The record is a 175-nucleotide RNA sequence from Streptomyces sp. RP5T, which matches "c-di-AMP riboswitch aptamer (ydaO/yuaA leader)" in Rfam.
Rfam's curators write: This family represents a conserved RNA structure found upstream of the ydaO and yuaA genes in Bacillus subtilis and related genes in other bacteria.
[Rfam]
RNA sequence: CCCGCACACCCACCGAGAACCACGGCAGGAGCGGGGGAACCAGGUAAGUCGUCGUACCGGUCGUCUUCGGACAUACCGGUACGGCUUGGGGUGAAGUCCCGCCUUUCACAGGCGUGGCCGGGCAGCUCCCGCCCGAACCCGACAGCUCACCUCGCAGGCGACGGAGAGGAACUUC
Dot-bracket structure: ((.........................)).((((((....(((((......................................)))))(((.....((.(((.........))).))..((((.......))))...))).........))))))....................

Rfam links the family to the GO terms regulation of gene expression and cyclic-di-AMP binding.